[Rfam]
RNA sequence: ACAAAGGCUCUUUUCAGAGCCACACACUGAACUGAAGAACUAUAG
Numbered sequence: 001a002c003a004a005a006g007g008c009u010c011u012u013u014u015c016a017g018a019g020c021c022a023c024a025c026a027c028u029g030a031a032c033u034g035a036a037g038a039a040c041u042a043u044a045g
Stems, first nucleotide, its partner, number of pairs: 006021006
Annotation: This 45-nucleotide RNA from Betta splendens belongs to the Rfam family "Histone 3' UTR stem-loop". Rfam describes the family as follows. The mRNAs of metazoan histone genes lack a poly-A tail. 3' end processing occurs at a site between a highly conserved stem-loop (modelled by this family) and a purine rich region around 20 nts downstream (the histone downstream element, or HDE). The stem-loop is bound by a 31 kDa stem-loop binding protein (SLBP - also termed the histone hairpin binding protein, or HBP). Together with U7 snRNA binding of the HDE, SLBP binding nucleate s the formation of the processing complex. The histone 3' UTR stem-loop is also involved in nucleocytoplasmic transport of the mRNA, and in stability regulation and translation efficiency in the cytoplasm. The base pairs follow the family's consensus structure, which is taken from published work.